RNA sequence: GUGAAUUUGUCUUUGGUAAACUAGCUGUAUGUAAGAUUAUUCCAUAAAGCUAUUUUACCAAAAAUAAAUUCAU
Numbered sequence: 001g002u003g004a005a006u007u008u009g010u011c012u013u014u015g016g017u018a019a020a021c022u023a024g025c026u027g028u029a030u031g032u033a034a035g036a037u038u039a040u041u042c043c044a045u046a047a048a049g050c051u052a053u054u055u056u057a058c059c060a061a062a063a064a065u066a067a068a069u070u071c072a073u
Base pairs, nucleotide, nucleotide: 001073002072003071004070005069007067008066009065010064012062013061014060015059016058017057018056019055020054022052023051024050025049026048028046029045030044031043033041